[Rfam]
RNA sequence: UCGUGGGAUGGGGAUGGUGCUCCCCGAGAACUGCCGUUUAUCGGCUGAUAGCGCCUGCCAGGCC
Numbered sequence: 001u002c003g004u005g006g007g008a009u010g011g012g013g014a015u016g017g018u019g020c021u022c023c024c025c026g027a028g029a030a031c032u033g034c035c036g037u038u039u040a041u042c043g044g045c046u047g048a049u050a051g052c053g054c055c056u057g058c059c060a061g062g063c064c
Stems, first nucleotide, its partner, number of pairs: 010025004016055006033045004
Rfam assigns this 64-nucleotide RNA from Shinella fusca to the family "Fluoride riboswitch aptamer (crcB RNA motif)". The organism belongs to Shinella, within Bacteria. The family's consensus secondary structure is taken from published work.